Shown here is a 58-nucleotide RNA sequence from Devosia sp. MC521, a member of the family "terC RNA". The match comes from Rfam's covariance-model search (56 bits). The family has 129 seed sequences and 1,112 matches in Rfam 15.1. The family's RNA type in Rfam is cis-regulatory element.
RNA sequence: GAGCAGCGCCGGGCCCCUCUGGUCGUAGCUCUUGCUACGGCGAUGUCGGAGCUGCUCC
Numbered sequence: 001g002a003g004c005a006g007c008g009c010c011g012g013g014c015c016c017c018u019c020u021g022g023u024c025g026u027a028g029c030u031c032u033u034g035c036u037a038c039g040g041c042g043a044u045g046u047c048g049g050a051g052c053u054g055c056u057c058c
Base pairs, nucleotide, nucleotide: 006052007051009049010048011047012046022041023040024039025038026037027036028035029034